[Rfam]
RNA sequence: GUCGGGAGUGGACUAAUACAAGACCCGCAAGGGGAAUACGUCCGGCCUUCUACUUGAGGUUUCUUAACCCCCGACACCUAGCC
Numbered sequence: 001g002u003c004g005g006g007a008g009u010g011g012a013c014u015a016a017u018a019c020a021a022g023a024c025c026c027g028c029a030a031g032g033g034g035a036a037u038a039c040g041u042c043c044g045g046c047c048u049u050c051u052a053c054u055u056g057a058g059g060u061u062u063c064u065u066a067a068c069c070c071c072c073g074a075c076a077c078c079u080a081g082c083c
Base pairs, nucleotide, nucleotide: 001075002074003073004072005071006070008068010043011042012041013040014038015037024033025032026031044061045060046059047058048057049056
This 83-nucleotide sequence from Pseudomonas sp. M47T1 belongs to the Rfam family "sRNA-Xcc1". NCBI's taxonomy places the organism under Bacteria, Gammaproteobacteria, Pseudomonadales, Pseudomonadaceae, Pseudomonas. The literature on the family includes a 2011 paper in RNA Biol by Chen et al., "sRNA-Xcc1, an integron-encoded transposon- and plasmid-transferred trans-acting sRNA, is under the positive control of the key virulence regulators HrpG and HrpX of Xanthomonas campestris pathovar campestris".